The record is an 83-nucleotide sequence from Clostridium aminobutyricum, which matches "Clostridiales-2 RNA" in Rfam. NCBI's taxonomy places the organism under Bacteria, Bacillati, Eubacteriales, Clostridiaceae, Clostridium. A search with the family's covariance model found it, with a score of 67 bits.
RNA sequence: AUAACAGGGGAAGUGCAGAGGGGAGGAGCCUCUUUGCCGAUAAAGGAGGGUGCUCAGCUCGCAAAGCGGGCGCCGAAGGGAAC
Numbered sequence: 001a002u003a004a005c006a007g008g009g010g011a012a013g014u015g016c017a018g019a020g021g022g023g024a025g026g027a028g029c030c031u032c033u034u035u036g037c038c039g040a041u042a043a044a045g046g047a048g049g050g051u052g053c054u055c056a057g058c059u060c061g062c063a064a065a066g067c068g069g070g071c072g073c074c075g076a077a078g079g080g081a082a083c
Stems, first nucleotide, its partner, number of pairs: 015037008057071005